[Rfam]
RNA sequence: UUUAGAUACGGAGACAUGGUACCGAAAACUAUUCUUGGUCAGCUGAUUGGUGGCACGUGUGCGCUUUCAGGAGUUCUUGUAAUUGCACUUCCAGUCCCAUUUAUCGUGUCCAAC
Numbered sequence: 001u002u003u004a005g006a007u008a009c010g011g012a013g014a015c016a017u018g019g020u021a022c023c024g025a026a027a028a029c030u031a032u033u034c035u036u037g038g039u040c041a042g043c044u045g046a047u048u049g050g051u052g053g054c055a056c057g058u059g060u061g062c063g064c065u066u067u068c069a070g071g072a073g074u075u076c077u078u079g080u081a082a083u084u085g086c087a088c089u090u091c092c093a094g095u096c097c098c099a100u101u102u103a104u105c106g107u108g109u110c111c112a113a114c
Stems, first nucleotide, its partner, number of pairs: 002113001005110001007108005013102002018097002021095002037077002050062002

Source information: Potassium channel RNA editing signal: a 114-nucleotide RNA from Mesocestoides corti. By type it is a cis-regulatory element. A search with the family's covariance model found it, with a score of 65 bits. The family has 85 seed sequences and 14,095 matches in Rfam 15.1.